[Rfam]
RNA sequence: UGUCAAGAGUUUUAAGCGUCGAUUCGGCGGACGGAUUUCUUUUGCCUAAUUGAAGGCGAAGGAAGAAA
Numbered sequence: 001u002g003u004c005a006a007g008a009g010u011u012u013u014a015a016g017c018g019u020c021g022a023u024u025c026g027g028c029g030g031a032c033g034g035a036u037u038u039c040u041u042u043u044g045c046c047u048a049a050u051u052g053a054a055g056g057c058g059a060a061g062g063a064a065g066a067a068a
Stems, first nucleotide, its partner, number of pairs: 010063004017058004023053002026050001029047001032044004
About this RNA: A member of the RNA family "S-element" from Mesorhizobium waimense, 68 nucleotides long. Rfam describes the family as follows. This family represents a group of S-elements from p42d and related plasmids. Rfam classes the family as a cis-regulatory element.